[Rfam]
Annotation:
A member of the RNA family "RtT RNA" from Chania multitudinisentens, 122 nucleotides long. From the family's description: This family represents a bacterial cis-regulatory element known as RtT RNA. The exact function of RtT is unknown although it is thought that it may be involved in changing the cellular response in relation to amino acid starvation. On this family, see Bosl and Kersten, Nucleic Acids Res 1991: "A novel RNA product of the tyrT operon of Escherichia coli". Its family is annotated with cellular response to amino acid starvation in the Gene Ontology. Rfam 15.1 lists 651 matches to the family in 204 species.

RNA sequence: UACAGAAUAAAAUCGUGAAGGAUGAGAACCGUAGAGGUUCGAGUCGAGCAACGCGAGACAACAUCGCGUGAGCGAUGGCCCGAAGGGCGAGGCGAAGCCGAGUUAUCCUGUACAAACCACUC
Numbered sequence: 001u002a003c004a005g006a007a008u009a010a011a012a013u014c015g016u017g018a019a020g021g022a023u024g025a026g027a028a029c030c031g032u033a034g035a036g037g038u039u040c041g042a043g044u045c046g047a048g049c050a051a052c053g054c055g056a057g058a059c060a061a062c063a064u065c066g067c068g069u070g071a072g073c074g075a076u077g078g079c080c081c082g083a084a085g086g087g088c089g090a091g092g093c094g095a096a097g098c099c100g101a102g103u104u105a106u107c108c109u110g111u112a113c114a115a116a117c118c119a120c121u122c
Base pairs, nucleotide, nucleotide: 015113016112017111019109020108021107023105034088038084039083040082041081045055046054062077063076064075065074066073067072
By type it is a cis-regulatory element.